The family of this 105-nucleotide RNA sequence from Theobroma umbraticum is "MIR398 microRNA precursor family". A search with the family's covariance model found it, with a score of 59 bits. On this family, see Jones-Rhoades and Bartel, Mol Cell 2004: "Computational identification of plant microRNAs and their targets, including a stress-induced miRNA".
[Rfam]
RNA sequence: GAAAGCCCUGCAGGGGCGACCUGAGAACACAUCAAAACACACAGGAUAAGGUUUCUCCUUAAAGAGUGCCCACAUGUGUUCUCAUGUCGCUCCUGUUGGGCUCCU
Dot-bracket structure: ......((..((((.((((...((((((((((.........................................))))))))))...)))).))))..))......